The family of this 586-nucleotide part of an RNA from Paludisphaera borealis is "Bacterial large subunit ribosomal RNA".

[Rfam]
Nucleotides: 586
Stems, first nucleotide, its partner, number of pairs: 001582008010574003014569002022403004027399002029395005035198004042190002045187004051154002054151006061144006068137001078136005085119003094113008158178008201213004214236006237384001239341002245299006251279002254272006280289002304327004310321003329338003352378007360371002412453003416450001417447007427437002464539001465537004469531001470528005477502002480497006504518005545563004549558003
Number, partner (000 for none) and nucleotide at each position: 001582c002581c003580c004579g005578c006577g007576g008575u009000u010574a011573g012572a013000c014569g015568g016000a017000a018000a019000g020000a021000c022403c023402c024401c025400g026000u027399g028398a029395a030394c031393c032392u033391u034000u035198a036197c037196u038195g039000c040000a041000g042190g043189u044000u045187g046186g047185c048184a049000c050000u051154g052153g053000u054151c055150c056149a057148a058147u059146g060000c061144u062143c063142g064141u065140u066139c067000u068137g069000u070000g071000u072000a073000g074000g075000a076000u077000a078136g079135g080134u081133g082132g083000g084000a085119g086118g087117c088000u089000u090000c091000g092000a093000c094113c095112c096111g097110g098109c099108g100107g101106c102000g103000c104000c105000a106101g107100c108099c109098g110097u111096c112095g113094g114000c115000g116000a117087g118086c119085c120000a121000c122000u123000g124000g125000u126000g127000a128000a129000a130000u131000a132082c133081c134080a135079c136078c137068c138000u139066g140065a141064a142063u143062g144061a145000u146059c147058g148057u149056u150055g151054g152000c153052c154051c155000u156000c157000a158178c159177c160176g161175a162174c163173g164172c165171g166000u167000a168000g169000c170000c171165c172164g173163c174162g175161u176160c177159g178158g179000g180000a181000c182000c183000g184048u185047g186046c187045u188000c189043a190042u191000c192000g193000g194000g195038c196037a197036g198035u199000u200000u201213g202212a203211c204210u205000g206000g207000g208000g209000c210204g211203g212202u213201c214236u215235c216234c217233u218232c219231c220000c221000a222000a223000a224000g225000a226000g227000u228000a229000a230000c231219g232218g233217a234216g235215g236214a237384g238000c239341g240340c241000c242000a243000u244000g245299g246298u247297a248296c249295c250294c251279u252278c253000g254272g255271c256270c257269c258268g259267g260000u261000c262000g263000g264000c265000a266000a267259u268258c269257g270256g271255g272254c273000a274000a275000c276000a277000c278252g279251a280289g281288c282000g283000c284000a285000a286000a287000c288281g289280u290000a291000c292000a293000a294250g295249g296248g297247u298246g299245c300000c301000u302000g303000a304327c305326u306325g307324c308000g309000a310321g311320a312319c313000g314000u315000a316000u317000g318000c319312g320311u321310c322000g323000a324307g325306c326305a327304g328000a329338g330337a331336c332000g333000a334000a335000a336331g337330u338329c339000g340240g341239c342000g343000u344000u345000a346000g347000u348000g349000a350000u351000c352378c353377g354376g355375c356374g357373g358372u359000g360371c361370u362000g363000g364000a365000u366000g367000g368000a369000a370361a371360g372358g373357c374356c375355g376354u377353c378352g379000c380000u381000c382000a383000a384237c385000a386000g387000a388000u389000a390000a391033a392032a393031g394030g395029u396000a397000c398028u399027c400025c401024g402023g403022g404000g405000a406000u407000a408000a409000c410000a411000g412453g413452c414451u415000g416450a417447u418446c419445u420444c421443c422442c423441c424000c425000g426000a427437g428436c429000g430000u431000c432000c433000c434000u435000a436428g437427c438000g439000g440000c441423g442422g443421g444420g445419a446418g447417g448000u449000u450416u451414g452413g453412c454000a455000c456000c457000u458000c459000g460000a461000u462000g463000u464539c465537g466536g467535c468534u469531c470528a471527u472526c473525g474524c475000a476000u477502c478501c479000u480497g481496g482495g483494g484493c485492u486000g487000g488000a489000g490000a491000a492485g493484g494483u495482c496481c497480c498000a499000a500000g501478g502477g503000u504518u505517u506516g507515g508514c509000u510000g511000u512000u513000c514508g515507c516506c517505a518504a519000u520000g521000a522000a523000a524474g525473c526472g527471g528470u529000a530000c531469g532000c533000g534468a535467g536466c537465u538000g539464g540000g541000u542000u543000c544000a545563g546562a547561c548560c549558g550557u551556c552000g553000u554000g555000a556551g557550a558549c559000a560548g561547g562546u563545c564000g565000g566000u567000c568015c569014c570000u571000a572012u573011c574010u575008g576007c577006c578005g579004u580003g581002g582001g583000c584000g585000u586000a